[Rfam]
RNA: IMES-2 RNA motif
RNA sequence: AAAUGAAUUGAGGGGCAACUCUCAACUGGCCAGUUAGGGAAAAACCGAGAGGUUCAAGCUUAACGGGCAGAAAGUUUCACUGAGUAGCGCUAAAAUAGUGAAACGGGAGGCUUGGCGGUAGCGCAUAAACGACGAGCCAA
Numbered sequence: 001a002a003a004u005g006a007a008u009u010g011a012g013g014g015g016c017a018a019c020u021c022u023c024a025a026c027u028g029g030c031c032a033g034u035u036a037g038g039g040a041a042a043a044a045c046c047g048a049g050a051g052g053u054u055c056a057a058g059c060u061u062a063a064c065g066g067g068c069a070g071a072a073a074g075u076u077u078c079a080c081u082g083a084g085u086a087g088c089g090c091u092a093a094a095a096u097a098g099u100g101a102a103a104c105g106g107g108a109g110g111c112u113u114g115g116c117g118g119u120a121g122c123g124c125a126u127a128a129a130c131g132a133c134g135a136g137c138c139a140a
Base pairs, nucleotide, nucleotide: 008025009024010023011022012021013020014019026070027069028068030067031066033064034063035062036061037060038059043054044053045052046051074104075103076102077101078100079099080098081097087124088123089122090121091120109138110137111136112135113134114133116131117130